[Rfam]
The record is a 253-nucleotide RNA from Scaptodrosophila lebanonensis, which matches "U11 spliceosomal RNA" in Rfam. It is annotated as a spliceosomal small nuclear RNA. A search with the family's covariance model found it, with a score of 58 bits. Lineage of the source: Eukaryota > Hexapoda > Pterygota > Panorpida > Scaptodrosophila.
RNA sequence: UAAAAGGGUGCUCGUCUCGGCGGGUUUCUGAUCGAAAAACUGCUCGACGCAUUGCGCCGCCGACACAUCCAAACACCCUUCUCGGGUGGGGUGUGCGCUGAAUUGCCACCUUUGGUGGGUCGGCGUGCCCAGUGGGGUAUGGCUUUGCAUAUCCAGUGCGUAAUUUUUGUAGCCCUGGGGCUGCGGCUGGCAACGUCAGUCCAUUGGAUUGCAGGUUCGCCUGCGUGCCAGUGGCCGUUUGCGCUGUGCCCCA
Numbered sequence: 001u002a003a004a005a006g007g008g009u010g011c012u013c014g015u016c017u018c019g020g021c022g023g024g025u026u027u028c029u030g031a032u033c034g035a036a037a038a039a040c041u042g043c044u045c046g047a048c049g050c051a052u053u054g055c056g057c058c059g060c061c062g063a064c065a066c067a068u069c070c071a072a073a074c075a076c077c078c079u080u081c082u083c084g085g086g087u088g089g090g091g092u093g094u095g096c097g098c099u100g101a102a103u104u105g106c107c108a109c110c111u112u113u114g115g116u117g118g119g120u121c122g123g124c125g126u127g128c129c130c131a132g133u134g135g136g137g138u139a140u141g142g143c144u145u146u147g148c149a150u151a152u153c154c155a156g157u158g159c160g161u162a163a164u165u166u167u168u169g170u171a172g173c174c175c176u177g178g179g180g181c182u183g184c185g186g187c188u189g190g191c192a193a194c195g196u197c198a199g200u201c202c203a204u205u206g207g208a209u210u211g212c213a214g215g216u217u218c219g220c221c222u223g224c225g226u227g228c229c230a231g232u233g234g235c236c237g238u239u240u241g242c243g244c245u246g247u248g249c250c251c252c253a
Base pairs, nucleotide, nucleotide: 008159009158010157011156012155013049014048015047016046050134051133052132053131054130056128057127058125059124060123061122062121063120064119135154136153137152138151139150140149141148178251179250180249181248183247184246185245186244187243189242192239193238194237195236